RNA sequence: UGAUCUUGGAAAUCAAGUAUAGGUAGAGCCUGUGGGUGCCAUUCCAGGCGACCCAUACUUGGUUUCCAGGGUGU
Numbered sequence: 001u002g003a004u005c006u007u008g009g010a011a012a013u014c015a016a017g018u019a020u021a022g023g024u025a026g027a028g029c030c031u032g033u034g035g036g037u038g039c040c041a042u043u044c045c046a047g048g049c050g051a052c053c054c055a056u057a058c059u060u061g062g063u064u065u066c067c068a069g070g071g072u073g074u
Stems, first nucleotide, its partner, number of pairs: 003072005009066006016059002022053003028049004
Dot-bracket structure: ..(((((.((((((.((....(((...((((..............)))).)))....)).)))))).)))))..

About this RNA: mir-551 microRNA precursor family: a 74-nucleotide RNA sequence from Amazona aestiva. Rfam links the family to the GO terms RISC complex and miRNA-mediated post-transcriptional gene silencing. For this family Rfam cites "Identification of novel chicken microRNAs and analysis of their genomic organization" (Shao et al., Gene, 2008). NCBI's taxonomy places the organism under Eukaryota, Gnathostomata, Archelosauria, Saurischia, Amazona.